[Rfam]
RNA sequence: AGAGUCCUAGGGUGUUCGUUAGAACCCUAUAUGUUUUGAGCCAACACUAAUAAGUAAGGGAGCCUGAUUCAAAGUUUUCAUUUGGCGUGCAAGCCUCCAUCGUGAAGAGGACGUACAAAGAAUGAAACAGGGCACCCACCUGCGAGAGCAGGUUCAAAACAAAGGAGAAACGACGGCACAGUUGGGACUCUU
Numbered sequence: 001a002g003a004g005u006c007c008u009a010g011g012g013u014g015u016u017c018g019u020u021a022g023a024a025c026c027c028u029a030u031a032u033g034u035u036u037u038g039a040g041c042c043a044a045c046a047c048u049a050a051u052a053a054g055u056a057a058g059g060g061a062g063c064c065u066g067a068u069u070c071a072a073a074g075u076u077u078u079c080a081u082u083u084g085g086c087g088u089g090c091a092a093g094c095c096u097c098c099a100u101c102g103u104g105a106a107g108a109g110g111a112c113g114u115a116c117a118a119a120g121a122a123u124g125a126a127a128c129a130g131g132g133c134a135c136c137c138a139c140c141u142g143c144g145a146g147a148g149c150a151g152g153u154u155c156a157a158a159a160c161a162a163a164g165g166a167g168a169a170a171c172g173a174c175g176g177c178a179c180a181g182u183u184g185g186g187a188c189u190c191u192u
Base pairs, nucleotide, nucleotide: 002190003189004188005187006186007185008184009183010182012179013178014177015176017175018174019173032161033160034159035158037156038155039154040153041152042151058137059136060135062133063132064131065130069127077126078125079124080123081122082121083120089114090113094110095109096108097107
The family of this 192-nucleotide RNA sequence from Pueribacillus theae is "6S / SsrS RNA". The family's consensus secondary structure is taken from published work. By type it is a non-coding RNA gene.